This 97-nucleotide RNA sequence from Motilimonas pumila belongs to the Rfam family "Bacterial small signal recognition particle RNA". Taxonomically the source falls in Motilimonas (Bacteria, Pseudomonadati, Gammaproteobacteria, Alteromonadales). The family's RNA type in Rfam is non-coding RNA gene. The base pairs follow the family's consensus structure, which is taken from published work.
RNA sequence: CUAUGGUCCCCUCGCAUUGAUACUCCGUGAACUCGGCCAGGACCGGAAGGUAGCAACCGCAGCGGACGACUCAAGUGCCGGGGUGUGGCUAUAGGGU
Numbered sequence: 001c002u003a004u005g006g007u008c009c010c011c012u013c014g015c016a017u018u019g020a021u022a023c024u025c026c027g028u029g030a031a032c033u034c035g036g037c038c039a040g041g042a043c044c045g046g047a048a049g050g051u052a053g054c055a056a057c058c059g060c061a062g063c064g065g066a067c068g069a070c071u072c073a074a075g076u077g078c079c080g081g082g083g084u085g086u087g088g089c090u091a092u093a094g095g096g097u
Base pairs, nucleotide, nucleotide: 004091005090006089007088008087010083011082012081013080014079015075017074018073019072020071024066025065026064027063028062034059035058036057042051043050044049